[Rfam]
RNA sequence: GUAGAUAUAGUUUACAAAAAACAUUAGACUGUGAAUCUAACAACAGGAAAUCAAAUUCCUUAUUUACC
Numbered sequence: 001g002u003a004g005a006u007a008u009a010g011u012u013u014a015c016a017a018a019a020a021a022c023a024u025u026a027g028a029c030u031g032u033g034a035a036u037c038u039a040a041c042a043a044c045a046g047g048a049a050a051u052c053a054a055a056u057u058c059c060u061u062a063u064u065u066a067c068c
Stems, first nucleotide, its partner, number of pairs: 001067007010022004024040005045060005